[Rfam]
RNA: mir-24 microRNA precursor family
RNA sequence: ACCUCCCGUGCCUUCUGAAUUGAUGUAACAGUUCUACUUUAAAAACUGUCUCAGUUCAGCAGGAACAGGAU
Dot-bracket structure: ...(((.((.(((.(((((((((....(((((............))))).))))))))).))).)).))).